A member of the RNA family "UnaL2 LINE 3' element" from Muraenolepis orangiensis, 54 nucleotides long. The literature on the family includes a 2004 paper in RNA by Baba et al., "Solution structure of an RNA stem-loop derived from the 3' conserved region of eel LINE UnaL2". Pairs were carried over by alignment from the consensus structure, which is taken from published work. Taxonomically the source falls in Muraenolepis (Eukaryota, Deuterostomia, Actinopteri, Paracanthopterygii). By type it is a cis-regulatory element.

RNA sequence: UGAAAACACUAUUGUAAGUUGCUUUGGACAAAAGCGUCUGCUAAAUGACUGUGA
Number, nucleotide and partner (000 for none) at each position: 001u000002g000003a000004a000005a000006a000007c000008a000009c000010u000011a000012u000013u043014g041015u040016a039017a000018g000019u000020u036021g035022c034023u033024u032025u031026g000027g000028a000029c000030a000031a025032a024033a023034g022035c021036g020037u000038c000039u016040g015041c014042u000043a013044a000045a000046u000047g000048a000049c000050u000051g000052u000053g000054a000